[Rfam]
The record is a 137-nucleotide RNA sequence from Nonomuraea muscovyensis, which matches "c-di-AMP riboswitch aptamer (ydaO/yuaA leader)" in Rfam.
The organism belongs to Nonomuraea, within Bacteria.
The match comes from Rfam's covariance-model search (101 bits).
RNA sequence: GGCUGACCGGCGCCGAAUCCCGCGCCAGCGGGAACCGGGGACCCAUCUCCUGGGGUGAAUCCGACCAUCGCGUGUCGGUAGGGCAUCUCCACGCCCGAACCCGUCAGCUAACCCGGUAGGCGAGAUGGAGAGGACAC
Numbered sequence: 001g002g003c004u005g006a007c008c009g010g011c012g013c014c015g016a017a018u019c020c021c022g023c024g025c026c027a028g029c030g031g032g033a034a035c036c037g038g039g040g041a042c043c044c045a046u047c048u049c050c051u052g053g054g055g056u057g058a059a060u061c062c063g064a065c066c067a068u069c070g071c072g073u074g075u076c077g078g079u080a081g082g083g084c085a086u087c088u089c090c091a092c093g094c095c096c097g098a099a100c101c102c103g104u105c106a107g108c109u110a111a112c113c114c115g116g117u118a119g120g121c122g123a124g125a126u127g128g129a130g131a132g133g134a135c136a137c
Base pairs, nucleotide, nucleotide: 011122012121013120014119018033019032020031021030022029023028034117035116036115037114038113039112044052045051053102054101055100061078062077063076064075081096082095083094084093